RNA sequence: GAAAACGAGACGGGGUGCUGUGUGCAGCUGAGACCGGAGGACCGGAACCCGAAAACCUGAUUUGGGUAAUGCCAACGUAGGAAUCUCAUGAAAGGACAGA
Numbered sequence: 001g002a003a004a005a006c007g008a009g010a011c012g013g014g015g016u017g018c019u020g021u022g023u024g025c026a027g028c029u030g031a032g033a034c035c036g037g038a039g040g041a042c043c044g045g046a047a048c049c050c051g052a053a054a055a056c057c058u059g060a061u062u063u064g065g066g067u068a069a070u071g072c073c074a075a076c077g078u079a080g081g082a083a084u085c086u087c088a089u090g091a092a093a094g095g096a097c098a099g100a
Stems, first nucleotide, its partner, number of pairs: 007087004011051004016045001017028004035044003056081004062075004